RNA: xerDC RNA
RNA sequence: GCUGUCUGCCGGCAGCACAUGGCACGCGCGGCCGCUGGCCGCAUCCGUCUGUGCGGUAGUGCCUGCCGCCGCUGUGGCCACUGGUCACAGCAGGGCGUUUUUGCGCCCCAUGCAGCAUCUUACUCACC
Numbered sequence: 001g002c003u004g005u006c007u008g009c010c011g012g013c014a015g016c017a018c019a020u021g022g023c024a025c026g027c028g029c030g031g032c033c034g035c036u037g038g039c040c041g042c043a044u045c046c047g048u049c050u051g052u053g054c055g056g057u058a059g060u061g062c063c064u065g066c067c068g069c070c071g072c073u074g075u076g077g078c079c080a081c082u083g084g085u086c087a088c089a090g091c092a093g094g095g096c097g098u099u100u101u102u103g104c105g106c107c108c109c110a111u112g113c114a115g116c117a118u119c120u121u122a123c124u125c126a127c128c
Stems, first nucleotide, its partner, number of pairs: 001016005021063005028042005045056003065116002068113002071091008093108001095106003